[Rfam]
RNA sequence: GAGACUGGUGGCUAGGGUUCCGACGCUUUUUGCGUGUCUGGUCCGAGAGCUGCCACCGGCGGGCGCCACAGUCCGCCGGACGCACGGCGGGACAAAAGCCCGGGAGAC
Numbered sequence: 001g002a003g004a005c006u007g008g009u010g011g012c013u014a015g016g017g018u019u020c021c022g023a024c025g026c027u028u029u030u031u032g033c034g035u036g037u038c039u040g041g042u043c044c045g046a047g048a049g050c051u052g053c054c055a056c057c058g059g060c061g062g063g064c065g066c067c068a069c070a071g072u073c074c075g076c077c078g079g080a081c082g083c084a085c086g087g088c089g090g091g092a093c094a095a096a097a098g099c100c101c102g103g104g105a106g107a108c
Base pairs, nucleotide, nucleotide: 007054008053009052010051011050012049015044016043020041021040022038023035024034025033026032056079057078058077059076060075061074062073063072064071083103085106089101090100091099
Rfam assigns this 108-nucleotide RNA from Devosia sp. Root413D1 to the family "Guanidine-I riboswitch aptamer". It scores 82 bits against the family's covariance model. The literature on the family includes a 2017 paper in RNA by Battaglia et al., "Structural basis for guanidine sensing by the ykkC family of riboswitches". NCBI's taxonomy places the organism under Bacteria, Alphaproteobacteria, Hyphomicrobiales, Devosiaceae, Devosia.